[Rfam]
RNA sequence: UAGAGCAAUGAUGAGUCCUACAGACCUGUAAUGAUUUGCGGUAAUGAUCGCAACUUUAAGAACAUCUAAGGGACUGAGUUCUC
Numbered sequence: 001u002a003g004a005g006c007a008a009u010g011a012u013g014a015g016u017c018c019u020a021c022a023g024a025c026c027u028g029u030a031a032u033g034a035u036u037u038g039c040g041g042u043a044a045u046g047a048u049c050g051c052a053a054c055u056u057u058a059a060g061a062a063c064a065u066c067u068a069a070g071g072g073a074c075u076g077a078g079u080u081c082u083c
Stems, first nucleotide, its partner, number of pairs: 002082005

The family of this 83-nucleotide sequence from Hevea brasiliensis is "Small nucleolar RNA SNORD25".
It is annotated as a C/D-box small nucleolar RNA.
A reference for the family is Qu et al. (2001), "Identification of 10 novel snoRNA gene clusters from Arabidopsis thaliana", Nucleic Acids Res.
Rfam links the family to the GO terms nucleolus and RNA processing.
A search with the family's covariance model found it, with a score of 68 bits.
Clan: SNORD25 clan.